[Rfam]
RNA sequence: AGGUCAUUUCAAAGAGGGAUUCAGGGACUAAAACCAAGAGCUCUUAACUCUAUGACCAAAUAUUGAAGUUUUCCAUUGGAUGUAAUCGUUACUCGACCAACAGGGCUGUGGUUUCCUGAGGAGAUGGAAGA
Numbered sequence: 001a002g003g004u005c006a007u008u009u010c011a012a013a014g015a016g017g018g019a020u021u022c023a024g025g026g027a028c029u030a031a032a033a034c035c036a037a038g039a040g041c042u043c044u045u046a047a048c049u050c051u052a053u054g055a056c057c058a059a060a061u062a063u064u065g066a067a068g069u070u071u072u073c074c075a076u077u078g079g080a081u082g083u084a085a086u087c088g089u090u091a092c093u094c095g096a097c098c099a100a101c102a103g104g105g106c107u108g109u110g111g112u113u114u115c116c117u118g119a120g121g122a123g124a125u126g127g128a129a130g131a
Stems, first nucleotide, its partner, number of pairs: 002057006014045005020039002025034001070124005078116003085109002088106001090105001092103002
About this RNA
Shown here is a 131-nucleotide RNA sequence from Panthera leo, a member of the family "Small nucleolar RNA SNORA25". The source organism's lineage runs through Eukaryota, Opisthokonta, Amniota, Feliformia and Panthera. Gene Ontology terms of the family: nucleolus and RNA processing.